The record is a 234-nucleotide sequence from Oecophyllibacter saccharovorans, which matches "FMN riboswitch aptamer (RFN element)" in Rfam. The match comes from Rfam's covariance-model search (95 bits).

RNA sequence: AGACGUUCUCGGGGCAGGGUGUAACUCCCUACCGGCGGUGAGAAGUCUCAGUGUUCCGUGCCGGGCCCAGGGGCCAGGCAUGUGGAACGCUCUGAGGUUUCAAGCCCGCGAGCGCCCCGGUCGCUCUCGGUCUGCCCCUACUGGAAACGGUGGGGCCUGAGAGCAACCGGGGGUCCAGCAGAUCUGGUGUGAUUCCAGAGCCGACGGUGACAGUCCGGAUGUGAGAGAACGCUG
Number, nucleotide and partner (000 for none) at each position: 001a000002g000003a000004c231005g230006u229007u228008c227009u226010c225011g000012g000013g000014g000015c000016a000017g029018g028019g027020u000021g000022u000023a000024a000025c000026u000027c019028c018029c017030u000031a214032c213033c203034g202035g109036c108037g107038g106039u000040g000041a000042g000043a000044a000045g000046u000047c000048u000049c000050a000051g000052u000053g000054u000055u000056c000057c000058g000059u000060g000061c000062c000063g000064g000065g000066c000067c000068c000069a000070g000071g000072g000073g000074c000075c000076a000077g000078g000079c000080a000081u000082g000083u000084g000085g000086a000087a000088c000089g000090c000091u000092c000093u000094g000095a000096g000097g000098u000099u000100u000101c000102a000103a000104g000105c000106c038107c037108g036109c035110g000111a000112g179113c178114g000115c000116c000117c000118c000119g000120g000121u000122c000123g000124c000125u000126c000127u000128c000129g000130g000131u000132c000133u000134g000135c000136c000137c000138c000139u000140a000141c000142u000143g000144g000145a000146a000147a000148c000149g000150g000151u000152g000153g000154g000155g000156c000157c000158u000159g000160a000161g000162a000163g000164c000165a000166a000167c000168c000169g000170g000171g000172g000173g000174u000175c000176c000177a000178g113179c112180a000181g000182a000183u199184c198185u197186g196187g195188u000189g000190u000191g000192a000193u000194u000195c187196c186197a185198g184199a183200g000201c000202c034203g033204a000205c217206g216207g215208u000209g000210a000211c000212a000213g032214u031215c207216c206217g205218g000219a000220u000221g000222u000223g000224a000225g010226a009227g008228a007229a006230c005231g004232c000233u000234g000